[Rfam]
The record is a 162-nucleotide RNA sequence from Phyllostomus discolor, which matches "U1 spliceosomal RNA" in Rfam. It scores 78 bits against the family's covariance model. U1 is a small nuclear RNA (snRNA) component of the spliceosome (involved in pre-mRNA splicing). The family is grouped with related families in Rfam's "U1 clan". For this family Rfam cites "Crystal structure at 1.92 A resolution of the RNA-binding domain of the U1A spliceosomal protein complexed with an RNA hairpin" (Oubridge et al., Nature, 1994). Rfam classes the family as a spliceosomal small nuclear RNA. The source organism's lineage runs through Eukaryota, Metazoa, Sarcopterygii, Eutheria and Phyllostomus.
RNA sequence: UCACUUACCUGGAAGGGGAGACACCAUGACCAGGAAGGCUGUUUUCCCAGAGGACGCUCGCCCAUCACAUUCUGGGUGUGCUGACCCUGGGUGUUCCCCGAAUGUGGGACACUCAGCUGCAUGGUUUGUGCUGGUAAGGGACUACAUUCAUGCUUUCUCCUA
Numbered sequence: 001u002c003a004c005u006u007a008c009c010u011g012g013a014a015g016g017g018g019a020g021a022c023a024c025c026a027u028g029a030c031c032a033g034g035a036a037g038g039c040u041g042u043u044u045u046c047c048c049a050g051a052g053g054a055c056g057c058u059c060g061c062c063c064a065u066c067a068c069a070u071u072c073u074g075g076g077u078g079u080g081c082u083g084a085c086c087c088u089g090g091g092u093g094u095u096c097c098c099c100g101a102a103u104g105u106g107g108g109a110c111a112c113u114c115a116g117c118u119g120c121a122u123g124g125u126u127u128g129u130g131c132u133g134g135u136a137a138g139g140g141a142c143u144a145c146a147u148u149c150a151u152g153c154u155u156u157c158u159c160c161u162a
Stems, first nucleotide, its partner, number of pairs: 012120001014118002016048006023042002027038001049088002053085001056081002059078005093113001094111001095109004136161001138159004145152002